[Rfam]
RNA sequence: CGCUUAUUUUGCGAAGGCGGAGUUCGACCGCCUCUGGAAAAAGUGAUGCCACUGCUGGAUAAGCUGCGUAAGCUGUACGGGGUCGGACCAGUAUGCAGUGAACUGCAUAUUGCCCCG
Numbered sequence: 001c002g003c004u005u006a007u008u009u010u011g012c013g014a015a016g017g018c019g020g021a022g023u024u025c026g027a028c029c030g031c032c033u034c035u036g037g038a039a040a041a042a043g044u045g046a047u048g049c050c051a052c053u054g055c056u057g058g059a060u061a062a063g064c065u066g067c068g069u070a071a072g073c074u075g076u077a078c079g080g081g082g083u084c085g086g087a088c089c090a091g092u093a094u095g096c097a098g099u100g101a102a103c104u105g106c107a108u109a110u111u112g113c114c115c116c117g
Stems, first nucleotide, its partner, number of pairs: 016032005078117005089112002092109007

ALIL pseudoknot: a 117-nucleotide RNA sequence from Escherichia coli. Gene Ontology term of the family: positive regulation of translational frameshifting. The literature on the family includes a 2008 paper in J Biol Chem by Mazauric et al., "Apical loop-internal loop RNA pseudoknots: a new type of stimulator of -1 translational frameshifting in bacteria". Pairs were carried over by alignment from the consensus structure, which is taken from published work. It is annotated as a cis-regulatory element. Rfam's curators put it in the seed alignment. Lineage of the source: Bacteria > Pseudomonadati > Pseudomonadota > Enterobacterales > Escherichia coli.